[Rfam]
RNA sequence: GCCCAUCCACAGGGGUGCUCCGUAUAGCCGGGGCUGAGACGCGGGCGGCAAGCCUUCAAACCCUAGUAGCUGAUCUGGGUAAUACCAGCGGAGCGAGGCGGGGCUAUGUAUUCU
Numbered sequence: 001g002c003c004c005a006u007c008c009a010c011a012g013g014g015g016u017g018c019u020c021c022g023u024a025u026a027g028c029c030g031g032g033g034c035u036g037a038g039a040c041g042c043g044g045g046c047g048g049c050a051a052g053c054c055u056u057c058a059a060a061c062c063c064u065a066g067u068a069g070c071u072g073a074u075c076u077g078g079g080u081a082a083u084a085c086c087a088g089c090g091g092a093g094c095g096a097g098g099c100g101g102g103g104c105u106a107u108g109u110a111u112u113c114u
Base pairs, nucleotide, nucleotide: 006102007101008100010098011064012063013062014061016058017034018033019032020031021030041057043055044054045053069094070093071092075088076087077086078085

This 114-nucleotide RNA from Devosia sp. LC5 belongs to the Rfam family "TPP riboswitch aptamer (THI element)". Lineage of the source: Bacteria > Pseudomonadati > Alphaproteobacteria > Devosiaceae > Devosia.